The record is a 119-nucleotide sequence from Paenibacillus solanacearum, which matches "Bacillus sRNA ncr1015" in Rfam. The base pairs follow the family's consensus structure, which is taken from published work. The match comes from Rfam's covariance-model search (99 bits). It is annotated as a small RNA.
RNA sequence: UUGUAAGAUGCAUCAACUAUGUUCUUUCGACAUAAAACAGUCGUGUUCUGAUUAUAUCAUCGUAUUUGCUCAUGUGCAAUAUAGAAGAACCUGGUGAAGAUUUCCAGGUUCUUUUUUGA
Numbered sequence: 001u002u003g004u005a006a007g008a009u010g011c012a013u014c015a016a017c018u019a020u021g022u023u024c025u026u027u028c029g030a031c032a033u034a035a036a037a038c039a040g041u042c043g044u045g046u047u048c049u050g051a052u053u054a055u056a057u058c059a060u061c062g063u064a065u066u067u068g069c070u071c072a073u074g075u076g077c078a079a080u081a082u083a084g085a086a087g088a089a090c091c092u093g094g095u096g097a098a099g100a101u102u103u104c105c106a107g108g109u110u111c112u113u114u115u116u117u118g119a
Base pairs, nucleotide, nucleotide: 034073037070038068039065042062043061083115084114085113086112087111088110089109090108091107092106093105094104